[Rfam]
Rfam assigns this 84-nucleotide RNA from Marmota monax to the family "Small nucleolar RNA SNORD116". Gene Ontology terms of the family: RNA processing and nucleolus. The base pairs follow the family's consensus structure, which was predicted with PFOLD. It is annotated as a C/D-box small nucleolar RNA.
RNA sequence: CUAGAAAUAAUAAUACACAUAAUUCCAUCCCUUAGAUUAAAAUGGAUGAAUAUUUUGCACUGUUUUCCCCAUCUACUUGUUUGG
Numbered sequence: 001c002u003a004g005a006a007a008u009a010a011u012a013a014u015a016c017a018c019a020u021a022a023u024u025c026c027a028u029c030c031c032u033u034a035g036a037u038u039a040a041a042a043u044g045g046a047u048g049a050a051u052a053u054u055u056u057g058c059a060c061u062g063u064u065u066u067c068c069c070c071a072u073c074u075a076c077u078u079g080u081u082u083g084g
Base pairs, nucleotide, nucleotide: 001084002083003082004081005080026048027047028046029045030044032040033039034038